[Rfam]
RNA: mir-395 microRNA precursor family
RNA sequence: AUGUUUCCUAGAGUUCCUCUGAGCACUUCAUUGGAUUAUAUAACAUUUUAUAUUAAAUGUAUUCCACUAACUGUAUUCCACUGAAGUGUUUGGGGGAACUCCUGGACUCGU
Numbered sequence: 001a002u003g004u005u006u007c008c009u010a011g012a013g014u015u016c017c018u019c020u021g022a023g024c025a026c027u028u029c030a031u032u033g034g035a036u037u038a039u040a041u042a043a044c045a046u047u048u049u050a051u052a053u054u055a056a057a058u059g060u061a062u063u064c065c066a067c068u069a070a071c072u073g074u075a076u077u078c079c080a081c082u083g084a085a086g087u088g089u090u091u092g093g094g095g096g097a098a099c100u101c102c103u104g105g106a107c108u109c110g111u
Stems, first nucleotide, its partner, number of pairs: 006106003011101010022091002024088007032080004